Shown here is an 80-nucleotide sequence from Scyliorhinus torazame, a member of the family "mir-219 microRNA precursor family".
RNA sequence: CCAGCUCUUGAUUGUCCGAACGCAAUUCUUGUGCUACAUGUUAACCAAACCAAGAAUUGUGUCUGGGCAUCUGAAGCCGG
Numbered sequence: 001c002c003a004g005c006u007c008u009u010g011a012u013u014g015u016c017c018g019a020a021c022g023c024a025a026u027u028c029u030u031g032u033g034c035u036a037c038a039u040g041u042u043a044a045c046c047a048a049a050c051c052a053a054g055a056a057u058u059g060u061g062u063c064u065g066g067g068c069a070u071c072u073g074a075a076g077c078c079g080g
Stems, first nucleotide, its partner, number of pairs: 002079001004077003010071003014068005021061011
The match comes from Rfam's covariance-model search (67 bits). Gene Ontology terms of the family: miRNA-mediated post-transcriptional gene silencing and RISC complex.